Record summary:
The record is an 86-nucleotide sequence from Manduca sexta, which matches "mir-276 microRNA precursor family" in Rfam. A reference for the family is Li et al. (2009), "Direct sequencing and expression analysis of a large number of miRNAs in Aedes aegypti and a multi-species survey of novel mosquito miRNAs", BMC Genomics.
RNA sequence: CCUGGUGAUUGCCACUAGCGAGGUAUAGAGUUCCUACGUGUCCUGUAACUGUAGGAACUUCAUACCGUGCUCUUGGGAUUGCCAGU
Numbered sequence: 001c002c003u004g005g006u007g008a009u010u011g012c013c014a015c016u017a018g019c020g021a022g023g024u025a026u027a028g029a030g031u032u033c034c035u036a037c038g039u040g041u042c043c044u045g046u047a048a049c050u051g052u053a054g055g056a057a058c059u060u061c062a063u064a065c066c067g068u069g070c071u072c073u074u075g076g077g078a079u080u081g082c083c084a085g086u
Base pairs, nucleotide, nucleotide: 012076013075014074017071018070019069020068022066023065024064025063026062028060029059030058031057032056033055034054035053036052037051